Annotation
Rfam assigns this 117-nucleotide sequence from Acinetobacter indicus to the family "ALIL pseudoknot". It is annotated as a cis-regulatory element. Pairs were carried over by alignment from the consensus structure, which is taken from published work. Rfam 15.1 lists 2,146 matches to the family in 1,098 species. Taxonomically the source falls in Acinetobacter indicus (Bacteria, Pseudomonadati, Moraxellales, Moraxellaceae).
[Rfam]
RNA sequence: CGCUUUUUUCGCCCAGGCGGAGCUCGACCGCCCACACAAAUAAUGGUGGAUUUUAUCCAUAAUAAUAAAGAGCUGUACGGAGUCGAGGCGAUUUGUAGAAUUUUACCGAUCGCACCC
Numbered sequence: 001c002g003c004u005u006u007u008u009u010c011g012c013c014c015a016g017g018c019g020g021a022g023c024u025c026g027a028c029c030g031c032c033c034a035c036a037c038a039a040a041u042a043a044u045g046g047u048g049g050a051u052u053u054u055a056u057c058c059a060u061a062a063u064a065a066u067a068a069a070g071a072g073c074u075g076u077a078c079g080g081a082g083u084c085g086a087g088g089c090g091a092u093u094u095g096u097a098g099a100a101u102u103u104u105a106c107c108g109a110u111c112g113c114a115c116c117c
Base pairs, nucleotide, nucleotide: 016032017031018030019029020028079116080115082113089112090111092109093108095106096105097104098103